[Rfam]
RNA: Small nucleolar RNA SNORA5
Organism: Melopsittacus undulatus
RNA sequence: UGCAGCCCUGUCAAAUUCGAUCCCUGCCUCUUCUGUAGCAAGGAUUGGCCAAACGGCUGCCACAGCCACUUCUGUGGUCCAUGAGCUCCACAUCCCCUUCCCCAUGGGAUGCUGGGAUAAAAUCAGGCUAUGGACAUGU
Number, nucleotide and partner (000 for none) at each position: 001u000002g060003c059004a058005g057006c000007c000008c000009u000010g000011u000012c000013a000014a000015a000016u000017u000018c047019g046020a045021u044022c043023c042024c000025u040026g039027c038028c000029u000030c000031u000032u000033c000034u000035g000036u000037a000038g027039c026040a025041a000042g023043g022044a021045u020046u019047g018048g000049c000050c000051a000052a000053a000054c000055g000056g000057c005058u004059g003060c002061c000062a000063c000064a000065g000066c000067c000068a000069c000070u000071u000072c000073u000074g131075u130076g129077g128078u127079c126080c000081a000082u000083g000084a000085g000086c116087u115088c114089c000090a000091c111092a000093u000094c000095c000096c000097c000098u000099u000100c000101c000102c000103c000104a000105u000106g000107g000108g000109a000110u000111g091112c000113u000114g088115g087116g086117a000118u000119a000120a000121a000122a000123u000124c000125a000126g079127g078128c077129u076130a075131u074132g000133g000134a000135c000136a000137u000138g000139u000